This 62-nucleotide sequence from Marmota monax belongs to the Rfam family "Gag/pol translational readthrough site". The family has 8 seed sequences and 3,368 matches in Rfam 15.1. A reference for the family is Wills et al. (1994), "Pseudoknot-dependent read-through of retroviral gag termination codons: importance of sequences in the spacer and loop 2", EMBO J.
Nucleotides: 062
Stems, first nucleotide, its partner, number of pairs: 008041003012036004016031001018029002022060006
Number, partner (000 for none) and nucleotide at each position: 001000u002000a003000g004000g005000a006000a007000a008041g009040u010039c011000a012036g013035g014034g015033c016031u017000c018029g019028g020000a021000u022060c023059c024058c025057c026056u027055c028019c029018c030000c031016g032000a033015g034014c035013u036012c037000a038000g039010g040009g041008u042000a043000a044000c045000u046000u047000u048000u049000g050000a051000a052000g053000u054000g055027g056026a057025g058024g059023g060022g061000a062000c